[Rfam]
RNA: Eukaryotic small subunit ribosomal RNA, nucleotides 33 to 592
RNA sequence: UGUCUCGAAGAUUAAGCCAUGCAAGUCUAAGUUCAAACGGAAUUUUGAUACGUGGAAACUGCGAAUGGCUCAUUAAAUCAGUCUUAAUUUGGUCGGAGGAAGCUCUCUGUUUUGGAGAGGUAUACGGAUAACCGUACAAAAGGUAGAGCUAAUACGUGCCGAGAAAGCGGGGUCCGUGAAUUAUCACGGUCGCUGCGGGUUUUAUUAGAAUUACAAGACGACGGCUUUGUACCUUUGGGUGCGGGGUUUGAGUUGAAUCAUGGUAACAAGAAUGGAUUGCGGGUUGUGCUUGCACGGCUGCGAUGUACCGAUGGAAAGUCUGCCCUAUCACCUGUCGACGGUAGGAUAGAGGCCUACCGUGGGGAUAACGGGUAACGGGGGAUUAGAGUUUUAUACCGGAGAGGGCGCCUGAGAGAUGGCGACCACUUCCAAGGAAGGCAGCAGGCGCGCAAAUUACCCAAUGGCGACAUGCCGAGGUAGUGAAGAACAAUAACGAUGGGCGGGUCUUAGAACUUGCCCAAUUGGAAUGAGUUUAAAUUACAACCCUAUUCGAGGAGCAA
Numbered sequence: 001u002g003u004c005u006c007g008a009a010g011a012u013u014a015a016g017c018c019a020u021g022c023a024a025g026u027c028u029a030a031g032u033u034c035a036a037a038c039g040g041a042a043u044u045u046u047g048a049u050a051c052g053u054g055g056a057a058a059c060u061g062c063g064a065a066u067g068g069c070u071c072a073u074u075a076a077a078u079c080a081g082u083c084u085u086a087a088u089u090u091g092g093u094c095g096g097a098g099g100a101a102g103c104u105c106u107c108u109g110u111u112u113u114g115g116a117g118a119g120g121u122a123u124a125c126g127g128a129u130a131a132c133c134g135u136a137c138a139a140a141a142g143g144u145a146g147a148g149c150u151a152a153u154a155c156g157u158g159c160c161g162a163g164a165a166a167g168c169g170g171g172g173u174c175c176g177u178g179a180a181u182u183a184u185c186a187c188g189g190u191c192g193c194u195g196c197g198g199g200u201u202u203u204a205u206u207a208g209a210a211u212u213a214c215a216a217g218a219c220g221a222c223g224g225c226u227u228u229g230u231a232c233c234u235u236u237g238g239g240u241g242c243g244g245g246g247u248u249u250g251a252g253u254u255g256a257a258u259c260a261u262g263g264u265a266a267c268a269a270g271a272a273u274g275g276a277u278u279g280c281g282g283g284u285u286g287u288g289c290u291u292g293c294a295c296g297g298c299u300g301c302g303a304u305g306u307a308c309c310g311a312u313g314g315a316a317a318g319u320c321u322g323c324c325c326u327a328u329c330a331c332c333u334g335u336c337g338a339c340g341g342u343a344g345g346a347u348a349g350a351g352g353c354c355u356a357c358c359g360u361g362g363g364g365a366u367a368a369c370g371g372g373u374a375a376c377g378g379g380g381g382a383u384u385a386g387a388g389u390u391u392u393a394u395a396c397c398g399g400a401g402a403g404g405g406c407g408c409c410u411g412a413g414a415g416a417u418g419g420c421g422a423c424c425a426c427u428u429c430c431a432a433g434g435a436a437g438g439c440a441g442c443a444g445g446c447g448c449g450c451a452a453a454u455u456a457c458c459c460a461a462u463g464g465c466g467a468c469a470u471g472c473c474g475a476g477g478u479a480g481u482g483a484a485g486a487a488c489a490a491u492a493a494c495g496a497u498g499g500g501c502g503g504g505u506c507u508u509a510g511a512a513c514u515u516g517c518c519c520a521a522u523u524g525g526a527a528u529g530a531g532u533u534u535a536a537a538u539u540a541c542a543a544c545c546c547u548a549u550u551c552g553a554g555g556a557g558c559a560a
Stems, first nucleotide, its partner, number of pairs: 005486002009481001010448001016446003020443003025062002030060003069401003079322003084317002088315002094310003123158004132148001135145003167196004174189005202266006217254003231240003277303004282299006324372003331363003338360008376398003380391004403424002406421003426437004454479001456478003462474005494524003497520009531551001533548001535547001